[Rfam]
Notes: A member of the RNA family "mir-9223 microRNA precursor family" from Myotis davidii, 75 nucleotides long. A search with the family's covariance model found it, with a score of 78 bits. Pairs were carried over by alignment from the consensus structure, which was predicted with RNAalifold. Rfam links the family to the GO terms RISC complex and miRNA-mediated post-transcriptional gene silencing.
Nucleotides: 075
Stems, first nucleotide, its partner, number of pairs: 002074002005071006014062004019057004025052009
Number, partner (000 for none) and nucleotide at each position: 001000g002074g003073u004000g005071g006070u007069u008068c009067u010066c011000g012000a013000a014062u015061g016060a017059u018000g019057c020056a021055c022054c023000c024000u025052g026051g027050a028049a029048u030047c031046g032045g033044g034000c035000u036000c037000c038000c039000u040000c041000c042000u043000c044033u045032c046031u047030g048029g049028u050027u051026c052025c053000a054022g055021g056020u057019g058000c059017g060016u061015c062014a063000c064000c065000a066010g067009a068008g069007a070006a071005c072000c073003g074002c075000a